[Rfam]
RNA sequence: GGUUCGGGAGCCGCACGGUGGGACGCGCGGCAGGUAUUGAGCUGGAACCCCUGACAUUCGCAGACCGCACGCUCCGGGCCCCGACGGUGCGUGCG
Number, nucleotide and partner (000 for none) at each position: 001g043002g042003u041004u040005c039006g000007g000008g000009a000010g031011c030012c029013g028014c027015a000016c025017g024018g000019u000020g000021g000022g000023a000024c017025g016026c000027g014028c013029g012030g011031c010032a000033g000034g000035u000036a000037u000038u000039g005040a004041g003042c002043u001044g000045g000046a000047a000048c000049c000050c000051c000052u000053g000054a000055c000056a000057u000058u000059c000060g000061c000062a000063g000064a000065c000066c095067g094068c093069a092070c091071g000072c089073u000074c087075c086076g085077g000078g000079c000080c000081c000082c000083g000084a000085c076086g075087g074088u000089g072090c000091g070092u069093g068094c067095g066
The family of this 95-nucleotide sequence from Paracoccus sp. S1E-3 is "Rhodo-rpoB RNA". The organism belongs to Paracoccus, within Bacteria. A search with the family's covariance model found it, with a score of 63 bits.